[Rfam]
RNA: HNH endonuclease-associated RNA and ORF (HEARO) RNA
RNA sequence: GUCAAGUACUCCCGCUUUCAAAGUGGGGGCUUGCAUCAGGGGUGACUUCAGCCCGUCUCUGCCAGCCCCGGACUUGACCAGACCCGGCCAGGGCAGACAGCUUGGAUAGACUCAAGCUGGCUAUCGGGCCACCUUAGGGGCGAGAUUAGGUACGGCAGGGUGUGAGGCCAGCCCCGCCCUCUACGGUUCGUGGUUAAACAGCGAGAUGGGGUUCGACGCAGUGCCACGAAUGCUCAAACCGCCUAUAAGUUCGUCGAGGCCAACGUUAC
Numbered sequence: 001g002u003c004a005a006g007u008a009c010u011c012c013c014g015c016u017u018u019c020a021a022a023g024u025g026g027g028g029g030c031u032u033g034c035a036u037c038a039g040g041g042g043u044g045a046c047u048u049c050a051g052c053c054c055g056u057c058u059c060u061g062c063c064a065g066c067c068c069c070g071g072a073c074u075u076g077a078c079c080a081g082a083c084c085c086g087g088c089c090a091g092g093g094c095a096g097a098c099a100g101c102u103u104g105g106a107u108a109g110a111c112u113c114a115a116g117c118u119g120g121c122u123a124u125c126g127g128g129c130c131a132c133c134u135u136a137g138g139g140g141c142g143a144g145a146u147u148a149g150g151u152a153c154g155g156c157a158g159g160g161u162g163u164g165a166g167g168c169c170a171g172c173c174c175c176g177c178c179c180u181c182u183a184c185g186g187u188u189c190g191u192g193g194u195u196a197a198a199c200a201g202c203g204a205g206a207u208g209g210g211g212u213u214c215g216a217c218g219c220a221g222u223g224c225c226a227c228g229a230a231u232g233c234u235c236a237a238a239c240c241g242c243c244u245a246u247a248a249g250u251u252c253g254u255c256g257a258g259g260c261c262a263a264c265g266u267u268a269c
Stems, first nucleotide, its partner, number of pairs: 001078007010029002012026002016023002030040004081255003086130004133249004138244005150184002154178003158174004166261004186231009198222002201219003205214002